[Rfam]
RNA sequence: AGCCUAAACUAGUGACAUCACUGGCAUGGCGAAAAAGUCCUGACGGACACAAAGAACCCAUCAUAUGGGGUGUCCGUCAGGCCAUACCGGGAAACUGGUAUGAGAGGCUUCGGCCUCU
Numbered sequence: 001a002g003c004c005u006a007a008a009c010u011a012g013u014g015a016c017a018u019c020a021c022u023g024g025c026a027u028g029g030c031g032a033a034a035a036a037g038u039c040c041u042g043a044c045g046g047a048c049a050c051a052a053a054g055a056a057c058c059c060a061u062c063a064u065a066u067g068g069g070g071u072g073u074c075c076g077u078c079a080g081g082c083c084a085u086a087c088c089g090g091g092a093a094a095c096u097g098g099u100a101u102g103a104g105a106g107g108c109u110u111c112g113g114c115c116u117c118u
Stems, first nucleotide, its partner, number of pairs: 002030003009024006039081011057069005083102008103118006
Shown here is a 118-nucleotide RNA, a member of the family "LOOT RNA". It is one of the family's seed sequences. Rfam classes the family as a small RNA.